[Rfam]
The family of this 89-nucleotide RNA sequence from Lamprobacter modestohalophilus is "t44 RNA". The base pairs follow the family's consensus structure, which was predicted with LocARNA. The family's RNA type in Rfam is small RNA. The organism belongs to Lamprobacter, within Bacteria. Rfam describes the family as follows. This family consists of a number of bacterial RNA genes of between 135 and 170 bases in length.
RNA sequence: GCGACAAGCAAACUACGCCACACACGUGCCGACACAUGAUGCUGGGUGCCUCGCAAGGGGUUGCAUUAUGGGGUGCGUGGAGGCCCAAC
Numbered sequence: 001g002c003g004a005c006a007a008g009c010a011a012a013c014u015a016c017g018c019c020a021c022a023c024a025c026g027u028g029c030c031g032a033c034a035c036a037u038g039a040u041g042c043u044g045g046g047u048g049c050c051u052c053g054c055a056a057g058g059g060g061u062u063g064c065a066u067u068a069u070g071g072g073g074u075g076c077g078u079g080g081a082g083g084c085c086c087a088a089c
Stems, first nucleotide, its partner, number of pairs: 023079008035070008048061005